[Rfam]
RNA sequence: UCAUGUUCUGCGGGAGAGACCGGGGCGACAAGCUCCGGCGCCGAAGGAGCAACCGCCCCGGAAACUCUCAGGCCAAAGGACCGCAGGCCAAGC
Numbered sequence: 001u002c003a004u005g006u007u008c009u010g011c012g013g014g015a016g017a018g019a020c021c022g023g024g025g026c027g028a029c030a031a032g033c034u035c036c037g038g039c040g041c042c043g044a045a046g047g048a049g050c051a052a053c054c055g056c057c058c059c060g061g062a063a064a065c066u067c068u069c070a071g072g073c074c075a076a077a078g079g080a081c082c083g084c085a086g087g088c089c090a091a092g093c
Base pairs, nucleotide, nucleotide: 007087008086009085010084011083012082013081020038021037022036023035024034025033040073041072042071043069044068047067048066049065053061054060
Dot-bracket structure: ......(((((((......((((((.......)))))).(((((..(((...((.....))...))))).))).......)))))))......